[Rfam]
RNA sequence: UUUGAAAGCAUUGCACCCAGUGUCUGACUUGUCAGACAUUGUACCUGGAGCUUGGUAUUUGUUGUUUUGUAUUAAA
Numbered sequence: 001u002u003u004g005a006a007a008g009c010a011u012u013g014c015a016c017c018c019a020g021u022g023u024c025u026g027a028c029u030u031g032u033c034a035g036a037c038a039u040u041g042u043a044c045c046u047g048g049a050g051c052u053u054g055g056u057a058u059u060u061g062u063u064g065u066u067u068u069g070u071a072u073u074a075a076a
Stems, first nucleotide, its partner, number of pairs: 006053004017048004022037005
The record is a 76-nucleotide sequence from Oryzias latipes, which matches "U1A polyadenylation inhibition element (PIE)" in Rfam. The organism belongs to Oryzias, within Eukaryota. On this family, see Varani et al., Nat Struct Biol 2000: "The NMR structure of the 38 kDa U1A protein - PIE RNA complex reveals the basis of cooperativity in regulation of polyadenylation by human U1A protein". From the family's description: This family represents the U1A polyadenylation inhibition element (PIE). Pairs were carried over by alignment from the consensus structure, which is taken from published work.